[Rfam]
A member of the RNA family "Small nucleolar RNA SNORD58" from Illadopsis cleaveri, 72 nucleotides long. snoRNA U58 is found in introns 1, 3 and 6 of the ribosomal protein RPL17 gene in humans. NCBI's taxonomy places the organism under Eukaryota, Opisthokonta, Sauria, Sylvioidea, Illadopsis. Rfam classes the family as a C/D-box small nucleolar RNA. Rfam links the family to the GO terms RNA processing and nucleolus. For this family Rfam cites "Site-specific ribose methylation of preribosomal RNA: a novel function for small nucleolar RNAs" (Kiss-Laszlo et al., Cell, 1996).
RNA sequence: UUGCUGUGAUUAUUAUCUUAGGACAUCUUUGGAAUACCUAUGAAAAAACCCAAUAAGUUCUUUCUGAGCAAC
Numbered sequence: 001u002u003g004c005u006g007u008g009a010u011u012a013u014u015a016u017c018u019u020a021g022g023a024c025a026u027c028u029u030u031g032g033a034a035u036a037c038c039u040a041u042g043a044a045a046a047a048a049c050c051c052a053a054u055a056a057g058u059u060c061u062u063u064c065u066g067a068g069c070a071a072c
Stems, first nucleotide, its partner, number of pairs: 001071004